[Rfam]
RNA sequence: UGAGGACCCUGUUGAGUUUGACUCUAGUCUGGCAUGGUGAAGAGACAUGAGAGGUGUAGAAUAAGUGGGAGGCCCUCGGUGACCCCCUGCCCCUGCAAGAGGGUGGGGUGGGGUCUGCUGACCUCAUGGGCUGCCGGUGAAAUACCACUACUCCGAUCAUUUUUUCACUGACCCUGUGAGGUAGAGGGGCGAGCCCCAAGGGGCUCUUGCUUCUGGCACAAAGUACCUGGCUGCUGCAUGCACGCUGGGCAUGACCCAUUCUGGGGACAGUGCCAGGUGGGGAGUUUGCGAUGGUACAAACCCAGCUGUCAAAUGGUAAUGCACGUGUCCUAAGGUGAGCUCAGGGAGGACAGAAACCUCCCAUGGAGCAGAAGGGCAAAAGCUCACUUGAUGUUGAUUUUCAGUACGAAUAUAGACCUUGAAAGCGGGGUCUCACAACUCUUCUGACCUUUGGGGUUUUAAGUAGGAGGUGUCAGAAAAGUUACCACAGGGAUAACUGGCUUGUGGUGGCCAAGCGUUCAUAGUGACAUCGCUUUUUGAUCCUUCAAUGU
Numbered sequence: 001u002g003a004g005g006a007c008c009c010u011g012u013u014g015a016g017u018u019u020g021a022c023u024c025u026a027g028u029c030u031g032g033c034a035u036g037g038u039g040a041a042g043a044g045a046c047a048u049g050a051g052a053g054g055u056g057u058a059g060a061a062u063a064a065g066u067g068g069g070a071g072g073c074c075c076u077c078g079g080u081g082a083c084c085c086c087c088u089g090c091c092c093c094u095g096c097a098a099g100a101g102g103g104u105g106g107g108g109u110g111g112g113g114u115c116u117g118c119u120g121a122c123c124u125c126a127u128g129g130g131c132u133g134c135c136g137g138u139g140a141a142a143u144a145c146c147a148c149u150a151c152u153c154c155g156a157u158c159a160u161u162u163u164u165u166c167a168c169u170g171a172c173c174c175u176g177u178g179a180g181g182u183a184g185a186g187g188g189g190c191g192a193g194c195c196c197c198a199a200g201g202g203g204c205u206c207u208u209g210c211u212u213c214u215g216g217c218a219c220a221a222a223g224u225a226c227c228u229g230g231c232u233g234c235u236g237c238a239u240g241c242a243c244g245c246u247g248g249g250c251a252u253g254a255c256c257c258a259u260u261c262u263g264g265g266g267a268c269a270g271u272g273c274c275a276g277g278u279g280g281g282g283a284g285u286u287u288g289c290g291a292u293g294g295u296a297c298a299a300a301c302c303c304a305g306c307u308g309u310c311a312a313a314u315g316g317u318a319a320u321g322c323a324c325g326u327g328u329c330c331u332a333a334g335g336u337g338a339g340c341u342c343a344g345g346g347a348g349g350a351c352a353g354a355a356a357c358c359u360c361c362c363a364u365g366g367a368g369c370a371g372a373a374g375g376g377c378a379a380a381a382g383c384u385c386a387c388u389u390g391a392u393g394u395u396g397a398u399u400u401u402c403a404g405u406a407c408g409a410a411u412a413u414a415g416a417c418c419u420u421g422a423a424a425g426c427g428g429g430g431u432c433u434c435a436c437a438a439c440u441c442u443u444c445u446g447a448c449c450u451u452u453g454g455g456g457u458u459u460u461a462a463g464u465a466g467g468a469g470g471u472g473u474c475a476g477a478a479a480a481g482u483u484a485c486c487a488c489a490g491g492g493a494u495a496a497c498u499g500g501c502u503u504g505u506g507g508u509g510g511c512c513a514a515g516c517g518u519u520c521a522u523a524g525u526g527a528c529a530u531c532g533c534u535u536u537u538u539g540a541u542c543c544u545u546c547a548a549u550g551u
Stems, first nucleotide, its partner, number of pairs: 008491004013487002015483005021285004028277007037168009047157002051153003064149005071132005172265003176261001182258001184256001186255001191206005223252002226249006288303001290301001304326001307323003329430002335387006341367002344362006368377002392416001394414001397411004418427001420425001441469006449463003500541001502539001504538001506534005515525002

The family of this 551-nucleotide part of an RNA from Carlito syrichta is "Eukaryotic large subunit ribosomal RNA". It scores 2022 bits against the family's covariance model. Its family is annotated with ribosome and structural constituent of ribosome in the Gene Ontology. NCBI's taxonomy places the organism under Eukaryota, Tetrapoda, Theria, Haplorrhini, Carlito.